The family of this 91-nucleotide RNA sequence from Rhizobacter sp. AJA081-3 is "c-di-GMP-I riboswitch aptamer". The match comes from Rfam's covariance-model search (66 bits). The organism belongs to Rhizobacter, within Bacteria. The base pairs follow the family's consensus structure, which is taken from published work.
[Rfam]
RNA sequence: GCGAGACAAAGGCACACCCGUGCGAAAGCCGGGGUCGCAAAGCUUCCGGUCUACCGCCCUGGCAACGGGCCACGACAGCGGGGUUGCCCAG
Numbered sequence: 001g002c003g004a005g006a007c008a009a010a011g012g013c014a015c016a017c018c019c020g021u022g023c024g025a026a027a028g029c030c031g032g033g034g035u036c037g038c039a040a041a042g043c044u045u046c047c048g049g050u051c052u053a054c055c056g057c058c059c060u061g062g063c064a065a066c067g068g069g070c071c072a073c074g075a076c077a078g079c080g081g082g083g084u085u086g087c088c089c090a091g
Stems, first nucleotide, its partner, number of pairs: 012038002017033004022029002041085004046081003049076003056070004